[Rfam]
RNA sequence: AGUCGUCGCGGUACUCCUCCCAUUUUGCCGCGAUGGCUGUUCCCCUCUGGAGGUUUUUUAACCUUCACAAUUCAGGCCGGGCUUUUUAGUCCGGCUCUUUUU
Numbered sequence: 001a002g003u004c005g006u007c008g009c010g011g012u013a014c015u016c017c018u019c020c021c022a023u024u025u026u027g028c029c030g031c032g033a034u035g036g037c038u039g040u041u042c043c044c045c046u047c048u049g050g051a052g053g054u055u056u057u058u059u060a061a062c063c064u065u066c067a068c069a070a071u072u073c074a075g076g077c078c079g080g081g082c083u084u085u086u087u088a089g090u091c092c093g094g095c096u097c098u099u100u101u102u
Base pairs, nucleotide, nucleotide: 001038002037003036004035005034007032008031009030010029011028012027013026048067049066050065051064052063053062054061075096076095077094078093079092080091081090082089083088
This 102-nucleotide sequence from Phyllobacterium sp. YR531 belongs to the Rfam family "Alphaproteobacterial ar15". Gene Ontology term of the family: protein binding. Rfam classes the family as a small RNA. The source organism's lineage runs through Bacteria, Pseudomonadati, Pseudomonadota, Phyllobacteriaceae and Phyllobacterium. The literature on the family includes a 2012 paper in RNA Biol by del Val et al., "A survey of sRNA families in alpha-proteobacteria".